[Rfam]
RNA sequence: AGCCCGGACGGCGAUGGGGCUCGCCGACAACCGCGCCGCGCGCUGAUGGCUCCUACCCGGCG
Numbered sequence: 001a002g003c004c005c006g007g008a009c010g011g012c013g014a015u016g017g018g019g020c021u022c023g024c025c026g027a028c029a030a031c032c033g034c035g036c037c038g039c040g041c042g043c044u045g046a047u048g049g050c051u052c053c054u055a056c057c058c059g060g061c062g
Stems, first nucleotide, its partner, number of pairs: 010025004016053006033043003